Background:
The family of this 73-nucleotide RNA from Spirosoma sp. KCTC 42546 is "tRNA". Rfam's curators write: Transfer RNA (tRNA) molecules are approximately 80 nucleotides in length. By type it is a transfer RNA. The source organism's lineage runs through Bacteria, Pseudomonadati, Cytophagia, Cytophagales and Spirosoma.
RNA sequence: ACAUCGGUAGCUCAGUUGGUAGAGCGUCGGUCUCCAAAACCGAAAGUCGUAGGUUCGAGCCCUACCCGGUGUG
Dot-bracket structure: (((((((..((((........)))).(((((.......))))).....(((((.......)))))))))))).